[Rfam]
Shown here is a 102-nucleotide RNA sequence from Prolemur simus, a member of the family "Y RNA".
The family's consensus secondary structure is taken from published work.

RNA sequence: GGCUGGUCUGAGUGCAGUGGUAUUUACAACUAGUUGAUUACAACCAGUUACAGAUUUCCUUGUUUCUUCUCCACUCUUACUGCUUCGCUUGACUAGCCUUAA
Number, nucleotide and partner (000 for none) at each position: 001g098002g097003c096004u095005g094006g093007u092008c091009u000010g090011a089012g000013u000014g086015c000016a081017g080018u079019g078020g077021u000022a000023u000024u000025u000026a000027c000028a064029a063030c062031u000032a060033g059034u000035u000036g000037a000038u000039u000040a000041c000042a000043a000044c000045c000046a000047g000048u000049u000050a000051c000052a000053g000054a000055u000056u000057u000058c000059c033060u032061u000062g030063u029064u028065u000066c000067u000068u000069c000070u000071c000072c000073a000074c000075u000076c000077u020078u019079a018080c017081u016082g000083c000084u000085u000086c014087g000088c000089u011090u010091g008092a007093c006094u005095a004096g003097c002098c001099u000100u000101a000102a000
The family's RNA type in Rfam is non-coding RNA gene. The family has 104 seed sequences and 26,986 matches in Rfam 15.1. From the family's description: Y RNAs are components of the Ro ribonucleoprotein particle (Ro RNP), in association with Ro60 and La proteins.